Background: A member of the RNA family "Ribosomal protein L10 leader" from Alkalibacillus haloalkaliphilus, 154 nucleotides long. The organism belongs to Alkalibacillus, within Bacteria. A search with the family's covariance model found it, with a score of 78 bits. Pairs were carried over by alignment from the consensus structure, which was predicted with CMfinder. For this family Rfam cites "Diverse mechanisms for regulating ribosomal protein synthesis in Escherichia coli" (Zengel and Lindahl, Prog Nucleic Acid Res Mol Biol, 1994).
RNA sequence: AACUUAAUGAUAAUUAUACCGUAGACAGUAGGAGCGGAUUCCGCUUAAAUAUUCCUGCCGAGGUGUGUUAACGUAUAUUUUGUACAAGUUCGGAUUGUGCAAUUAUGUCUAACCAUGCCUCCAUGUCUACAUGGAGGCAUUUUUUGUAGGGCGA
Numbered sequence: 001a002a003c004u005u006a007a008u009g010a011u012a013a014u015u016a017u018a019c020c021g022u023a024g025a026c027a028g029u030a031g032g033a034g035c036g037g038a039u040u041c042c043g044c045u046u047a048a049a050u051a052u053u054c055c056u057g058c059c060g061a062g063g064u065g066u067g068u069u070a071a072c073g074u075a076u077a078u079u080u081u082g083u084a085c086a087a088g089u090u091c092g093g094a095u096u097g098u099g100c101a102a103u104u105a106u107g108u109c110u111a112a113c114c115a116u117g118c119c120u121c122c123a124u125g126u127c128u129a130c131a132u133g134g135a136g137g138c139a140u141u142u143u144u145u146g147u148a149g150g151g152c153g154a
Base pairs, nucleotide, nucleotide: 028058029057030056031055032054033053034044035043036042116139117138118137119136120135121134122133123132124131125130